[Rfam]
RNA sequence: CUCUGUUUCCGAAAGACGCAGGGCAAAAGGAG
Numbered sequence: 001c002u003c004u005g006u007u008u009c010c011g012a013a014a015g016a017c018g019c020a021g022g023g024c025a026a027a028a029g030g031a032g
Stems, first nucleotide, its partner, number of pairs: 001023005008016002